[Rfam]
RNA sequence: ACGAUUCUGUAUGACUGGCGGAAGUGGGAGUACCCACAGGGAGUACAGAAAUAAAAAUGCCGACCGCCUGGGCAACAGUG
Numbered sequence: 001a002c003g004a005u006u007c008u009g010u011a012u013g014a015c016u017g018g019c020g021g022a023a024g025u026g027g028g029a030g031u032a033c034c035c036a037c038a039g040g041g042a043g044u045a046c047a048g049a050a051a052u053a054a055a056a057a058u059g060c061c062g063a064c065c066g067c068c069u070g071g072g073c074a075a076c077a078g079u080g
Stems, first nucleotide, its partner, number of pairs: 003052001005050008015040002017068005024037004058074004

This 80-nucleotide RNA from Vallitalea pronyensis belongs to the Rfam family "ZMP/ZTP riboswitch aptamer (pfl RNA motif)".
Rfam links the family to the GO terms one-carbon metabolic process and regulation of purine nucleotide biosynthetic process.
The match comes from Rfam's covariance-model search (63 bits).
Pairs were carried over by alignment from the consensus structure, which is taken from published work.
Lineage of the source: Bacteria > Bacillati > Clostridia > Vallitaleaceae > Vallitalea.